[Rfam]
RNA sequence: UCAGUUAAAGGGCAAACUUAUUGAAAAAUAGGGACGCAAAGUCACGGGUCUAAAGUGAAUACUAUGAUGGCUGGGCUGCCUGA
Number, nucleotide and partner (000 for none) at each position: 001u000002c000003a000004g000005u000006u000007a000008a000009a000010g000011g000012g037013c036014a000015a000016a000017c032018u031019u030020a029021u028022u027023g000024a000025a000026a000027a022028a021029u020030a019031g018032g017033g000034a000035c000036g013037c012038a000039a000040a077041g076042u075043c074044a000045c073046g072047g071048g068049u067050c066051u000052a000053a000054a000055g062056u061057g000058a000059a000060u000061a056062c055063u000064a000065u000066g050067a049068u048069g000070g000071c047072u046073g045074g043075g042076c041077u040078g000079c000080c000081u000082g000083a000
Shown here is an 83-nucleotide RNA sequence from Metabacillus sediminilitoris, a member of the family "c-di-GMP-I riboswitch aptamer". Taxonomically the source falls in Metabacillus (Bacteria, Bacillati, Bacillota, Bacillaceae). A search with the family's covariance model found it, with a score of 73 bits. Its family is annotated with cyclic-di-GMP binding in the Gene Ontology.